[Rfam]
RNA sequence: GGGGGUAGAUGAGUCCUGGUGGGCUCUCCGGUCUUCAAAACCGUGCAUGUGGGGUUUGUAGCUUCAUAGGUGUGUUCGAUUCGCACAUACUCCC
Numbered sequence: 001g002g003g004g005g006u007a008g009a010u011g012a013g014u015c016c017u018g019g020u021g022g023g024c025u026c027u028c029c030g031g032u033c034u035u036c037a038a039a040a041c042c043g044u045g046c047a048u049g050u051g052g053g054g055u056u057u058g059u060a061g062c063u064u065c066a067u068a069g070g071u072g073u074g075u076u077c078g079a080u081u082c083g084c085a086c087a088u089a090c091u092c093c094c
Base pairs, nucleotide, nucleotide: 001094002093003092004091005090006089007088008086011026012025013024014023015022016021027045029043030042031041032040048068049067050066051065052064071085072084073083074082
RNA: Selenocysteine transfer RNA
Organism: Fenollaria massiliensis